[Rfam]
Nucleotides: 100
Base pairs, nucleotide, nucleotide: 003098004097005096006095007094008093013043015042016041017040018039022032023031024030026075027074028073029072044067045066046065047064049063050062051060052059053058071092076089077088078087079086
Number, partner (000 for none) and nucleotide at each position: 001000g002000u003098u004097c005096c006095a007094u008093c009000a010000a011000g012000a013043g014000u015042c016041g017040g018039c019000g020000g021000a022032g023031g024030g025000a026075u027074u028073g029072g030024c031023c032022c033000u034000g035000u036000g037000a038000u039018g040017c041016c042015g043013c044067a045066g046065c047064a048000a049063c050062c051060u052059u053058c054000g055000a056000u057000a058053g059052a060051a061000a062050g063049g064047u065046g066045c067044u068000a069000a070000u071092u072029c073028c074027a075026a076089c077088a078087g079086u080000u081000a082000u083000a084000c085000u086079a087078c088077u089076g090000g091000a092071a093008g094007a095006u096005g097004g098003g099000u100000a